[Rfam]
RNA sequence: AGUCUGUAGCUGGUUGAAAUCGGGCCAAAUUGUAAGUGUCCAAAGGCAUUUGGUCCCCUUCAACCAGCUGUAGUUA
Number, nucleotide and partner (000 for none) at each position: 001a000002g000003u000004c073005u072006g071007u000008a069009g068010c067011u066012g065013g064014u063015u062016g061017a060018a059019a000020u000021c000022g055023g054024g000025c053026c052027a051028a050029a049030u048031u000032g000033u000034a000035a000036g000037u000038g000039u000040c000041c000042a000043a000044a000045g000046g000047c000048a030049u029050u028051u027052g026053g025054u023055c022056c000057c000058c000059u018060u017061c016062a015063a014064c013065c012066a011067g010068c009069u008070g000071u006072a005073g004074u000075u000076a000
Rfam assigns this 76-nucleotide RNA from Acanthosepion pharaonis to the family "mir-133 microRNA precursor family". The literature on the family includes a 2002 paper in Curr Biol by Lagos-Quintana et al., "Identification of tissue-specific microRNAs from mouse". Taxonomically the source falls in Acanthosepion (Eukaryota, Metazoa, Mollusca, Cephalopoda). About the family: mir-133 was first experimentally characterised in mouse and homologues have since been discovered in several other species. A search with the family's covariance model found it, with a score of 64 bits.